[Rfam]
RNA sequence: GCGCCAGCUUUAGCUCACUGGCUACUUCACAGCAUCGACUUAAUUACUAGUUAAAAUCUGUCUCCCCUUGGGCGCUGCCUGGCGUUUUU
Numbered sequence: 001g002c003g004c005c006a007g008c009u010u011u012a013g014c015u016c017a018c019u020g021g022c023u024a025c026u027u028c029a030c031a032g033c034a035u036c037g038a039c040u041u042a043a044u045u046a047c048u049a050g051u052u053a054a055a056a057u058c059u060g061u062c063u064c065c066c067c068u069u070g071g072g073c074g075c076u077g078c079c080u081g082g083c084g085u086u087u088u089u
Base pairs, nucleotide, nucleotide: 002084003083004082005081006080007079013073014072015071016070020067021066026056027055
RNA: Vault RNA
Organism: Scyliorhinus torazame